Rfam assigns this 148-nucleotide RNA from Ventosimonas gracilis to the family "radC RNA". Rfam classes the family as a cis-regulatory element.

RNA sequence: ACGCUUGGGGCAUGUUUGCUGGCGUUGUCAGCACAUGCCCAGGCAGCCAUAGGUCUUUAAGGCUGCGGCGCAGGUUUUGACUUGCGUUAGACCAUCCAGUUCGCUUUCGGCAUCUUCGCGCGAACGGCCAUCCGUUGGAUGGUGAUGC
Numbered sequence: 001a002c003g004c005u006u007g008g009g010g011c012a013u014g015u016u017u018g019c020u021g022g023c024g025u026u027g028u029c030a031g032c033a034c035a036u037g038c039c040c041a042g043g044c045a046g047c048c049a050u051a052g053g054u055c056u057u058u059a060a061g062g063c064u065g066c067g068g069c070g071c072a073g074g075u076u077u078u079g080a081c082u083u084g085c086g087u088u089a090g091a092c093c094a095u096c097c098a099g100u101u102c103g104c105u106u107u108c109g110g111c112a113u114c115u116u117c118g119c120g121c122g123a124a125c126g127g128c129c130a131u132c133c134g135u136u137g138g139a140u141g142g143u144g145a146u147g148c
Base pairs, nucleotide, nucleotide: 011037012036013035014034015033018032019031020030021029022028023027043066044065045064046063047062048061052092054090067088068087069086070085071084072083073082074081075080120148121147122146127143128142129141130140131139132138133137